[Rfam]
RNA sequence: CCAGAUGAUAACAACGAGAGAUAUCCACUAGGGUAGCCGAAGAAGCAAUGUAAAAGAUGCCAAUUUUUUUACAGAAACUUUCAGGCAGAAGGAUCGUUGUUUGAUGGAACUCUGAAGAGCCCGUAUAUGCGGCGCCGUAGGAGAAAUACAUUUUAGUGUAGAAACUCUCAGGCAAAAAUACAGAGGA
Numbered sequence: 001c002c003a004g005a006u007g008a009u010a011a012c013a014a015c016g017a018g019a020g021a022u023a024u025c026c027a028c029u030a031g032g033g034u035a036g037c038c039g040a041a042g043a044a045g046c047a048a049u050g051u052a053a054a055a056g057a058u059g060c061c062a063a064u065u066u067u068u069u070u071a072c073a074g075a076a077a078c079u080u081u082c083a084g085g086c087a088g089a090a091g092g093a094u095c096g097u098u099g100u101u102u103g104a105u106g107g108a109a110c111u112c113u114g115a116a117g118a119g120c121c122c123g124u125a126u127a128u129g130c131g132g133c134g135c136c137g138u139a140g141g142a143g144a145a146a147u148a149c150a151u152u153u154u155a156g157u158g159u160a161g162a163a164a165c166u167c168u169c170a171g172g173c174a175a176a177a178a179u180a181c182a183g184a185g186g187a
Stems, first nucleotide, its partner, number of pairs: 001107003010101008022035005036086003042082001043080003049073009110185005119133001121132004134173003140169001142166002
Dot-bracket structure: (((......((((((((....(((((....)))))(((...((((...(((((((((.......)))))))))....))).).))).......))))))))...)))..(((((....(.((((....)))))(((...(.((.....................))..).))).......)))))..
The record is a 187-nucleotide sequence from Alkaliphilus sp. B6464, which matches "glycine-GGAnGA riboswitch aptamer" in Rfam. It scores 112 bits against the family's covariance model. A reference for the family is Weinberg et al. (2017), "Bioinformatic analysis of riboswitch structures uncovers variant classes with altered ligand specificity", Proc Natl Acad Sci U S A. Clan: Glycine riboswitch clan.